Rfam assigns this 132-nucleotide sequence from Sinanaerobacter chloroacetimidivorans to the family "FMN riboswitch aptamer (RFN element)".
The organism belongs to Sinanaerobacter, within Bacteria.
The match comes from Rfam's covariance-model search (102 bits).
Its family is annotated with FMN binding in the Gene Ontology.
The family's consensus secondary structure is taken from published work.

[Rfam]
RNA sequence: AAUCUGUUUCAGGGCGAGGUGCAAGUCCUCACCGGCGGUAAAGAGCAAUUUGCUACGAGUCCGCGAGCCAAUUUGGCUGAGUUCGGUUACAUUCCGAUACCGACGGUAUAGUCCGGAUGAAAGAAACACGGA
Numbered sequence: 001a002a003u004c005u006g007u008u009u010c011a012g013g014g015c016g017a018g019g020u021g022c023a024a025g026u027c028c029u030c031a032c033c034g035g036c037g038g039u040a041a042a043g044a045g046c047a048a049u050u051u052g053c054u055a056c057g058a059g060u061c062c063g064c065g066a067g068c069c070a071a072u073u074u075g076g077c078u079g080a081g082u083u084c085g086g087u088u089a090c091a092u093u094c095c096g097a098u099a100c101c102g103a104c105g106g107u108a109u110a111g112u113c114c115g116g117a118u119g120a121a122a123g124a125a126a127c128a129c130g131g132a
Stems, first nucleotide, its partner, number of pairs: 003130001005128006017029003031112002033102002035064004059100002067077003083097004104115003